[Rfam]
RNA: Human acetyl-coA cholesterol acyltransferase mRNA
RNA sequence: CCGCCCGGCCGGCGACGUUGCGGGCCCUGGGCGCCAGAGAGCUUCCCGGAGCCGACCUUCCAGCUGUCUGCUCUGUGGUCGCUUCCGGGCUCUCCCUUUUGGCCGAAGCCCCCGCUGCUGGGUGCGGGCCUCACUCAGGUAACGG
Numbered sequence: 001c002c003g004c005c006c007g008g009c010c011g012g013c014g015a016c017g018u019u020g021c022g023g024g025c026c027c028u029g030g031g032c033g034c035c036a037g038a039g040a041g042c043u044u045c046c047c048g049g050a051g052c053c054g055a056c057c058u059u060c061c062a063g064c065u066g067u068c069u070g071c072u073c074u075g076u077g078g079u080c081g082c083u084u085c086c087g088g089g090c091u092c093u094c095c096c097u098u099u100u101g102g103c104c105g106a107a108g109c110c111c112c113c114g115c116u117g118c119u120g121g122g123u124g125c126g127g128g129c130c131u132c133a134c135u136c137a138g139g140u141a142a143c144g145g
Stems, first nucleotide, its partner, number of pairs: 013017001034089002037085002040083003044078002047075005053070002057066001101130004108125002111122004